[Rfam]
RNA sequence: GGAGGGGUGUCCGAGUGGUUUAAGGAGCCGGUCUUGAAAACCGGUGACUCGCCCUGCGAGCCGUGGGUUCGAAUCCCACCCCCUCCG
Numbered sequence: 001g002g003a004g005g006g007g008u009g010u011c012c013g014a015g016u017g018g019u020u021u022a023a024g025g026a027g028c029c030g031g032u033c034u035u036g037a038a039a040a041c042c043g044g045u046g047a048c049u050c051g052c053c054c055u056g057c058g059a060g061c062c063g064u065g066g067g068u069u070c071g072a073a074u075c076c077c078a079c080c081c082c083c084u085c086c087g
Stems, first nucleotide, its partner, number of pairs: 001086007010026003028044005063079005

Shown here is an 87-nucleotide RNA from Carboxydothermus hydrogenoformans, a member of the family "tRNA".
It is annotated as a transfer RNA.
The base pairs follow the family's consensus structure, which is taken from published work.
Gene Ontology term of the family: triplet codon-amino acid adaptor activity.
It scores 61 bits against the family's covariance model.
Rfam describes the family as follows. Transfer RNA (tRNA) molecules are approximately 80 nucleotides in length.